[Rfam]
RNA sequence: CUGCAAGUUCAAGGCCAUAGCAGAAAUGCUCAUAGCGCGGUCCUGUCGGGUUCCAAUAAAUCUGCAAAUUCUGCU
Numbered sequence: 001c002u003g004c005a006a007g008u009u010c011a012a013g014g015c016c017a018u019a020g021c022a023g024a025a026a027u028g029c030u031c032a033u034a035g036c037g038c039g040g041u042c043c044u045g046u047c048g049g050g051u052u053c054c055a056a057u058a059a060a061u062c063u064g065c066a067a068a069u070u071c072u073g074c075u
Base pairs, nucleotide, nucleotide: 013042014041015040016039019075020074021073022072023071024070025069027037028036047064048063049062050061051060052059
The record is a 75-nucleotide RNA from Alligator mississippiensis, which matches "Mammalian CPEB3 ribozyme" in Rfam. Taxonomically the source falls in Alligator (Eukaryota, Metazoa, Teleostomi, Amniota). Rfam's curators write: The mammalian CPEB3 ribozyme is a self cleaving RNA located in the second intron of the CPEB3 gene which belongs to a family of genes regulating messenger RNA polyadenylation. This ribozyme is highly conserved and found only in mammals. The CPEB3 ribozyme is structurally and biochemically related to the human hepatitis delta virus (HDV) ribozyme and the HDV ribozyme is proposed to have arisen from the human transcriptome. There is currently only one other known self cleaving ribozyme in mammals, the CoTC motif. Pairs were carried over by alignment from the consensus structure, which is taken from published work.